Shown here is a 47-nucleotide RNA sequence from Pavo cristatus, a member of the family "Histone 3' UTR stem-loop". Rfam describes the family as follows. The mRNAs of metazoan histone genes lack a poly-A tail. 3' end processing occurs at a site between a highly conserved stem-loop (modelled by this family) and a purine rich region around 20 nts downstream (the histone downstream element, or HDE). The stem-loop is bound by a 31 kDa stem-loop binding protein (SLBP - also termed the histone hairpin binding protein, or HBP). The literature on the family includes a 1995 paper in Nucleic Acids Res by Williams and Marzluff, "The sequence of the stem and flanking sequences at the 3' end of histone mRNA are critical determinants for the binding of the stem-loop binding protein". The match comes from Rfam's covariance-model search (42 bits). Lineage of the source: Eukaryota > Tetrapoda > Coelurosauria > Phasianinae > Pavo.

[Rfam]
RNA sequence: CUAAAGGCUCUUUUCAGAGCCACCAUUUAUUCUAAUAAAAGAGCUGU
Dot-bracket structure: .....((((((....))))))..........................